[Rfam]
RNA sequence: UUUGGUAUUAUGAUAUUGUGCCACAUCAUCACUUAAAAGUUUAAAAUUUUAUAUAAAUUUUCAGGUGAUGAUGUGGUACAAUCUCAAAGUGUCAC
Numbered sequence: 001u002u003u004g005g006u007a008u009u010a011u012g013a014u015a016u017u018g019u020g021c022c023a024c025a026u027c028a029u030c031a032c033u034u035a036a037a038a039g040u041u042u043a044a045a046a047u048u049u050u051a052u053a054u055a056a057a058u059u060u061u062c063a064g065g066u067g068a069u070g071a072u073g074u075g076g077u078a079c080a081a082u083c084u085c086a087a088a089g090u091g092u093c094a095c
Stems, first nucleotide, its partner, number of pairs: 003094007012085002015082020036061006

Source information
A member of the RNA family "MIR8675 microRNA precursor family" from Gossypium raimondii, 95 nucleotides long. The family has 2 seed sequences and 111 matches in Rfam 15.1. Its family is annotated with RISC complex and miRNA-mediated post-transcriptional gene silencing in the Gene Ontology. The sequence is in the family's curated seed alignment.